[Rfam]
RNA sequence: ACUUGAAUUAAGAGGCAACUCUUAACUGGCCAGUUAGGGAAAGACCGAGAGGUUUAAGCUUAACGGGCAGAAAGCUUCACAAAGUAGCACUAAACAUAGUGAAGCGGGGGGUCUGGCGGUAGUGCUAAAACGACGGACCAA
Numbered sequence: 001a002c003u004u005g006a007a008u009u010a011a012g013a014g015g016c017a018a019c020u021c022u023u024a025a026c027u028g029g030c031c032a033g034u035u036a037g038g039g040a041a042a043g044a045c046c047g048a049g050a051g052g053u054u055u056a057a058g059c060u061u062a063a064c065g066g067g068c069a070g071a072a073a074g075c076u077u078c079a080c081a082a083a084g085u086a087g088c089a090c091u092a093a094a095c096a097u098a099g100u101g102a103a104g105c106g107g108g109g110g111g112u113c114u115g116g117c118g119g120u121a122g123u124g125c126u127a128a129a130a131c132g133a134c135g136g137a138c139c140a141a
Base pairs, nucleotide, nucleotide: 008025009024010023011022012021013020014019026070027069028068030067031066033064034063035062036061037060038059043054044053045052046051074105075104076103077102078101079100080099087125088124089123090122091121110139111138112137113136114135115134117132118131
IMES-2 RNA motif: a 141-nucleotide RNA. It is one of the family's seed sequences. For this family Rfam cites "Exceptional structured noncoding RNAs revealed by bacterial metagenome analysis" (Weinberg et al., Nature, 2009).